[Rfam]
RNA: Small nucleolar RNA SNORA40
Organism: Mus musculus
RNA sequence: UGCUUUUAAAAAUGUUAAUGAUAUUAAGAAAUCAUCACUAUCAGGUGCAAAAUAUAAAUCCUCUUUUGCAACCAAGAGCUCAUUGUUCAGUAUGAGUUUUGAUACAUACAAGAAGGAAUUUU
Numbered sequence: 001u002g003c004u005u006u007u008a009a010a011a012a013u014g015u016u017a018a019u020g021a022u023a024u025u026a027a028g029a030a031a032u033c034a035u036c037a038c039u040a041u042c043a044g045g046u047g048c049a050a051a052a053u054a055u056a057a058a059u060c061c062u063c064u065u066u067u068g069c070a071a072c073c074a075a076g077a078g079c080u081c082a083u084u085g086u087u088c089a090g091u092a093u094g095a096g097u098u099u100u101g102a103u104a105c106a107u108a109c110a111a112g113a114a115g116g117a118a119u120u121u122u
Stems, first nucleotide, its partner, number of pairs: 001049003005045003009041001011039001019034003025030001058119002061116002064113005075100009